[Rfam]
RNA sequence: UCCAGUAUGUUUGGAUUUAGAAUUCCUACGCUUUACCGUUGCCAAGCAGUGUUGGGCAAAGCGUUUGGAUUCUAAAACUAAAUAGCU
Numbered sequence: 001u002c003c004a005g006u007a008u009g010u011u012u013g014g015a016u017u018u019a020g021a022a023u024u025c026c027u028a029c030g031c032u033u034u035a036c037c038g039u040u041g042c043c044a045a046g047c048a049g050u051g052u053u054g055g056g057c058a059a060a061g062c063g064u065u066u067g068g069a070u071u072c073u074a075a076a077a078c079u080a081a082a083u084a085g086c087u
Stems, first nucleotide, its partner, number of pairs: 010081002014078001016076006023069003028064007036056002

This 87-nucleotide RNA from Spodoptera exigua belongs to the Rfam family "mir-927 microRNA precursor family". Its family is annotated with RISC complex and miRNA-mediated post-transcriptional gene silencing in the Gene Ontology. NCBI's taxonomy places the organism under Eukaryota, Protostomia, Hexapoda, Dicondylia, Spodoptera. Pairs were carried over by alignment from the consensus structure, which was predicted with RNAalifold. On this family, see Berezikov et al., Nat Genet 2010: "Evolutionary flux of canonical microRNAs and mirtrons in Drosophila".